Annotation
The family of this 131-nucleotide sequence from Pseudonocardia asaccharolytica is "ALIL pseudoknot". Lineage of the source: Bacteria > Bacillati > Actinomycetota > Pseudonocardiaceae > Pseudonocardia asaccharolytica. The family's RNA type in Rfam is cis-regulatory element. The literature on the family includes a 2008 paper in J Biol Chem by Mazauric et al., "Apical loop-internal loop RNA pseudoknots: a new type of stimulator of -1 translational frameshifting in bacteria". The match comes from Rfam's covariance-model search (61 bits). The family has 26 seed sequences and 2,146 matches in Rfam 15.1. Its family is annotated with positive regulation of translational frameshifting in the Gene Ontology.
RNA sequence: AGCUCGUUCUUCGCGCGGGAGCUCGACCCGCGACUGCCCUGGUAGUGGCGUUCAUCGACGCUCACCGCGAGCGGUUCGGGGUCGAGCCGAUCUGCCGCGUGCUCACCGGGCACGGCGUGCCGAUCGCCCCG
Dot-bracket structure: ..............(((((.......))))).............................................(((((......((.((.((.......................)).)).)))))))
Numbered sequence: 001a002g003c004u005c006g007u008u009c010u011u012c013g014c015g016c017g018g019g020a021g022c023u024c025g026a027c028c029c030g031c032g033a034c035u036g037c038c039c040u041g042g043u044a045g046u047g048g049c050g051u052u053c054a055u056c057g058a059c060g061c062u063c064a065c066c067g068c069g070a071g072c073g074g075u076u077c078g079g080g081g082u083c084g085a086g087c088c089g090a091u092c093u094g095c096c097g098c099g100u101g102c103u104c105a106c107c108g109g110g111c112a113c114g115g116c117g118u119g120c121c122g123a124u125c126g127c128c129c130c131g
Stems, first nucleotide, its partner, number of pairs: 015031005077131005088126002091123002094120002